The family of this 269-nucleotide RNA from Piliocolobus tephrosceles is "Mason-Pfizer monkey virus packaging signal". By type it is a cis-regulatory element. Pairs were carried over by alignment from the consensus structure, which was predicted with PFOLD. About the family: This family represents a group of sequences that are related to the Mason-Pfizer monkey virus (MPMV) packaging signal. The source organism's lineage runs through Eukaryota, Eumetazoa, Sarcopterygii, Colobinae and Piliocolobus. The match comes from Rfam's covariance-model search (192 bits).
RNA sequence: UGGCGCCCGAACAGGGACCUGGACACAGGGGAAGAAGUGAGGAAGAAGGCACUAAAGUCGGCCGAAAGUGAAAGUGGAAGAAAAAUUCCUCCGGACGUUGCGGGAACCUGCCGCGUUGGAACCAGAGGUAAGUAAUAGUGUCUGAUUAUGGGACAAGAAUUAAGCCAGCAUCAGAUUUAUGUAGGGCAAUUAAAAGAGGCUUUAAAAGCAUGAGGAAUAAAGGUUAAAAGUAAUGAUUUGUUUAGAUUUUGUAAAGGAUACCUGCCCUU
Dot-bracket structure: .....(((......(........)....)))......(.......).......................................(.(.((....(..(((((.......)))))..)......)).).).....(.((.((((....)))))).)....((((((...............................))).)))......((.(((((..((((((.......))))))......))))).))((((.(....).))))